[Rfam]
RNA: SAH (S-adenosyl-L-homocysteine) riboswitch aptamer
RNA sequence: GCUCAAGGAGCGCUGCAGCGGCCGGCUCAGCCCGCCGCCAGGCUUGAGGACACAACGGCGCUCACCUCCA
Numbered sequence: 001g002c003u004c005a006a007g008g009a010g011c012g013c014u015g016c017a018g019c020g021g022c023c024g025g026c027u028c029a030g031c032c033c034g035c036c037g038c039c040a041g042g043c044u045u046g047a048g049g050a051c052a053c054a055a056c057g058g059c060g061c062u063c064a065c066c067u068c069c070a
Stems, first nucleotide, its partner, number of pairs: 002048005019037004024032001